The family of this 91-nucleotide RNA sequence from Chenopodium quinoa is "Small nucleolar RNA snoR8a". The literature on the family includes a 2001 paper in RNA by Brown et al., "Multiple snoRNA gene clusters from Arabidopsis". Gene Ontology terms of the family: nucleolus and RNA processing.
RNA sequence: UUGGAUGCUGUGAUUAAAUAUAUAAUCUAUAUCUCUGAAUGCCAAUUUUGGCAUGGAAGACUCCUCAAUAGCUGGAUAGUAUAUGAGCACC
Numbered sequence: 001u002u003g004g005a006u007g008c009u010g011u012g013a014u015u016a017a018a019u020a021u022a023u024a025a026u027c028u029a030u031a032u033c034u035c036u037g038a039a040u041g042c043c044a045a046u047u048u049u050g051g052c053a054u055g056g057a058a059g060a061c062u063c064c065u066c067a068a069u070a071g072c073u074g075g076a077u078a079g080u081a082u083a084u085g086a087g088c089a090c091c
Base pairs, nucleotide, nucleotide: 003091004090006089007088
Dot-bracket structure: ..((.((................................................................................))))
Lineage of the source: Eukaryota > Euphyllophyta > Caryophyllales > Amaranthaceae > Chenopodium. The base pairs follow the family's consensus structure, which was predicted with WAR.